[Rfam]
RNA: Group II catalytic intron D1-D4-4
RNA sequence: UUGCGGGUGGAAGUCCCGUCCGGGUAGACACCGGAGUGCCCGGUAGCAGGUCCCGGUUCGUCGUGGAGACGCGGCGGGCUGAGCGGGAUGUCAAGAGCCUCUUUGGAGGGAGCAAGCAC
Number, nucleotide and partner (000 for none) at each position: 001u000002u000003g000004c000005g000006g000007g000008u000009g000010g000011a000012a000013g000014u000015c000016c000017c000018g000019u000020c043021c042022g041023g040024g039025u000026a000027g000028a000029c000030a000031c000032c000033g000034g000035a000036g000037u000038g000039c024040c023041c022042g021043g020044u000045a000046g000047c000048a000049g000050g089051u088052c087053c086054c085055g080056g079057u078058u077059c076060g075061u000062c000063g000064u071065g070066g000067a000068g000069a000070c065071g064072c000073g000074g000075c060076g059077g058078g057079c056080u055081g000082a000083g000084c000085g054086g053087g052088a051089u050090g000091u000092c000093a000094a000095g000096a000097g000098c109099c108100u107101c106102u000103u000104u000105g000106g101107a100108g099109g098110g000111a000112g000113c000114a000115a000116g000117c000118a000119c000